[Rfam]
The record is a 101-nucleotide RNA from Amycolatopsis sp. FDAARGOS 1241, which matches "Glycine riboswitch aptamer" in Rfam.
RNA sequence: CGAACCCGCGCGGGAGAGACCGAGCCGGCAUCCACGAGCUCGGCGCCGAAGGAGCAAGUCCUCCCCGGAACCUCUCAGGCACCCCGGACCGCGCGGACGAG
Numbered sequence: 001c002g003a004a005c006c007c008g009c010g011c012g013g014g015a016g017a018g019a020c021c022g023a024g025c026c027g028g029c030a031u032c033c034a035c036g037a038g039c040u041c042g043g044c045g046c047c048g049a050a051g052g053a054g055c056a057a058g059u060c061c062u063c064c065c066c067g068g069a070a071c072c073u074c075u076c077a078g079g080c081a082c083c084c085c086g087g088a089c090c091g092c093g094c095g096g097a098c099g100a101g
Stems, first nucleotide, its partner, number of pairs: 006096008020043006045080003048076002052074003